This 93-nucleotide RNA from Halalkalibacillus sediminis belongs to the Rfam family "Glycine riboswitch aptamer". A search with the family's covariance model found it, with a score of 70 bits. The pairing is the family consensus, mapped onto this sequence.
RNA sequence: AUGACUACAAGGGGAGAGACUGUGGUGAUCACAGCGCCGACGGAGCAAGUACUUAAGUAUGAAUCUCUCAGGCAAAAAGACCUUUGUAUGACG
Numbered sequence: 001a002u003g004a005c006u007a008c009a010a011g012g013g014g015a016g017a018g019a020c021u022g023u024g025g026u027g028a029u030c031a032c033a034g035c036g037c038c039g040a041c042g043g044a045g046c047a048a049g050u051a052c053u054u055a056a057g058u059a060u061g062a063a064u065c066u067c068u069c070a071g072g073c074a075a076a077a078a079g080a081c082c083u084u085u086g087u088a089u090g091a092c093g
Stems, first nucleotide, its partner, number of pairs: 006088008020034004036073003039069002043067003049060002
Lineage of the source: Bacteria > Bacilli > Caryophanales > Bacillaceae > Halalkalibacillus.